[Rfam]
This 290-nucleotide RNA sequence from Metamycoplasma orale belongs to the Rfam family "Bacterial RNase P class B".
For this family Rfam cites "Ribonuclease P: unity and diversity in a tRNA processing ribozyme" (Frank and Pace, Annu Rev Biochem, 1998).
RNA sequence: CUGUAUGGCUAAUUGCUACAUUAAGUAGAGGAAAAUCCGCUCUAACACUUUCUGCGAUGAAAGUAAAGUUCAUGCUAGAUCUAAUAAAUCUAGGCAACAAAAGUUGACGACUAGUGCAACAGAGACGAGCUUAUUAAGUUAAGAAUGCAACGAUGUAAACUCCAUGAGUUAGAAACCCAAAUUUAGGUAGGGGAACUAAGUUAAGAGAACUGAAUCAAGACUUGGAAGUAAUUACGAUUACUUAGAUAAAUAAUUAGCGCCAGCAAUGGUACAGAAAGCGGUUUAUAGUA
Numbered sequence: 001c002u003g004u005a006u007g008g009c010u011a012a013u014u015g016c017u018a019c020a021u022u023a024a025g026u027a028g029a030g031g032a033a034a035a036u037c038c039g040c041u042c043u044a045a046c047a048c049u050u051u052c053u054g055c056g057a058u059g060a061a062a063g064u065a066a067a068g069u070u071c072a073u074g075c076u077a078g079a080u081c082u083a084a085u086a087a088a089u090c091u092a093g094g095c096a097a098c099a100a101a102a103g104u105u106g107a108c109g110a111c112u113a114g115u116g117c118a119a120c121a122g123a124g125a126c127g128a129g130c131u132u133a134u135u136a137a138g139u140u141a142a143g144a145a146u147g148c149a150a151c152g153a154u155g156u157a158a159a160c161u162c163c164a165u166g167a168g169u170u171a172g173a174a175a176c177c178c179a180a181a182u183u184u185a186g187g188u189a190g191g192g193g194a195a196c197u198a199a200g201u202u203a204a205g206a207g208a209a210c211u212g213a214a215u216c217a218a219g220a221c222u223u224g225g226a227a228g229u230a231a232u233u234a235c236g237a238u239u240a241c242u243u244a245g246a247u248a249a250a251u252a253a254u255u256a257g258c259g260c261c262a263g264c265a266a267u268g269g270u271a272c273a274g275a276a277a278g279c280g281g282u283u284u285a286u287a288g289u290a
Stems, first nucleotide, its partner, number of pairs: 004290003007286001008258007016028004033284003037281005042172005047064006070167005075093006094108001095106004109162002114160002116156003131144002134141001176192003196225007226243006260269003

The base pairs follow the family's consensus structure, which is taken from published work. A search with the family's covariance model found it, with a score of 189 bits. From the family's description: Ribonuclease P (RNase P) is a ubiquitous endoribonuclease, found in archaea, bacteria and eukarya as well as chloroplasts and mitochondria. Its best characterised activity is the generation of mature 5'-ends of tRNAs by cleaving the 5'-leader elements of precursor-tRNAs. Cellular RNase Ps are ribonucleoproteins. RNA from bacterial RNase Ps retains its catalytic activity in the absence of the protein subunit, i.e. it is a ribozyme. Isolated eukaryotic and archaeal RNase P RNA has not been shown to retain its catalytic function, but is still essential for the catalytic activity of the holoenzyme. Although the archaeal and eukaryotic holoenzyme s have a much greater protein content than the bacterial ones, the RNA cores from all the three lineages are homologous -- helices corresponding to P1, P2, P3, P4, and P10/11 are common to all cellular RNase P RNAs. Yet, there is considerable sequence variation, particularly among the eukaryotic RNAs.